[Rfam]
RNA: terC RNA
Organism: Lichenifustis flavocetrariae
RNA sequence: GACUGGGUCCGGGCCCCUCUGGCGGUCGAGACGUCGACCGCGAUGUCGGACUGACACG
Numbered sequence: 001g002a003c004u005g006g007g008u009c010c011g012g013g014c015c016c017c018u019c020u021g022g023c024g025g026u027c028g029a030g031a032c033g034u035c036g037a038c039c040g041c042g043a044u045g046u047c048g049g050a051c052u053g054a055c056a057c058g
Stems, first nucleotide, its partner, number of pairs: 006052007022041008